A member of the RNA family "Enterococcus sRNA B11" from Enterococcus sp. HSIEG1, 170 nucleotides long. The base pairs follow the family's consensus structure, which was predicted with RNAfold.
RNA sequence: GGCAACUUGCCCCGUAAGGGGGUGCUAUUCAUGGAACAAAUUAUCUCGUUAGUUAUCGCACCACUUUUAGUGGGUCUAAUAAUCACAUUAGUUGAUCAUUGGUUAGAUGAUUAGACGAUAGCAAGCAAGUUGCUGUCUAACUCACACGCUUGUAUUCGCAACAAGUGCAA
Dot-bracket structure: ((((((((..(((....)))..(.(.......).)..............(.(((((..(.((((.....))))..(((((......)))))((((((...)))))).......)...))))).)..))))))))..............(((((.......))))).....